RNA sequence: UGACAACGAGAGAGAGCACGCUUGUUAUCACUCAUCCGAGGUAUAUGAUUGUGUACGGGCGUGCUCUAUGUCGUUGUCAUA
Numbered sequence: 001u002g003a004c005a006a007c008g009a010g011a012g013a014g015a016g017c018a019c020g021c022u023u024g025u026u027a028u029c030a031c032u033c034a035u036c037c038g039a040g041g042u043a044u045a046u047g048a049u050u051g052u053g054u055a056c057g058g059g060c061g062u063g064c065u066c067u068a069u070g071u072c073g074u075u076g077u078c079a080u081a
Base pairs, nucleotide, nucleotide: 001079002078003077004076005075007073008072011069014066016064017063018062019061020060021059022058023057024056025055